[Rfam]
RNA sequence: CGCGAGGCCAUCGAUUGGCUCGCUAAGCGGGCGCCGGGUCAGGCAUCCGGCGACCCUUGUCAUCACGUUGCUCCAAGGAGGAUGUGGUCAUGAGGA
Numbered sequence: 001c002g003c004g005a006g007g008c009c010a011u012c013g014a015u016u017g018g019c020u021c022g023c024u025a026a027g028c029g030g031g032c033g034c035c036g037g038g039u040c041a042g043g044c045a046u047c048c049g050g051c052g053a054c055c056c057u058u059g060u061c062a063u064c065a066c067g068u069u070g071c072u073c074c075a076a077g078g079a080g081g082a083u084g085u086g087g088u089c090a091u092g093a094g095g096a
Base pairs, nucleotide, nucleotide: 002023003022004021005020006019008018009017029055030054032052033051034050035049036048037047038046056094057093058092059091060090063087064086065085066084067083068082069081071080072079073078
Dot-bracket structure: .(((((.((.......))))))).....((.(((((((.......))))))).))(((((..(((((((.(((....))))))))))..)))))..